[Rfam]
RNA sequence: AGCUUUCUGAACCCGUGCUGAGAUUUCGUCCGACACCGACUCACUAGCGGUGAUGAGACUUUCCAGAUAAGUGAAAUG
Numbered sequence: 001a002g003c004u005u006u007c008u009g010a011a012c013c014c015g016u017g018c019u020g021a022g023a024u025u026u027c028g029u030c031c032g033a034c035a036c037c038g039a040c041u042c043a044c045u046a047g048c049g050g051u052g053a054u055g056a057g058a059c060u061u062u063c064c065a066g067a068u069a070a071g072u073g074a075a076a077u078g
Stems, first nucleotide, its partner, number of pairs: 002077001004075003008071001011068001013066001017063001020061003024058007
RNA: mir-3492 microRNA precursor family